Rfam assigns this 77-nucleotide sequence from Alligator sinensis to the family "Mammalian CPEB3 ribozyme".
The family's consensus secondary structure is taken from published work.
Rfam links the family to the GO term RNA nuclease activity.
A search with the family's covariance model found it, with a score of 36 bits.
RNA sequence: GGUUGCGAGUUCAAGCCGAUAGAAGAAGUACUCACAGUGUGGCCUUGUCAGAUUCUAAGAAAUCUGGGAAUUCUGUU
Numbered sequence: 001g002g003u004u005g006c007g008a009g010u011u012c013a014a015g016c017c018g019a020u021a022g023a024a025g026a027a028g029u030a031c032u033c034a035c036a037g038u039g040u041g042g043c044c045u046u047g048u049c050a051g052a053u054u055c056u057a058a059g060a061a062a063u064c065u066g067g068g069a070a071u072u073c074u075g076u077u
Stems, first nucleotide, its partner, number of pairs: 013045001015043003021077002024074004028040003049066006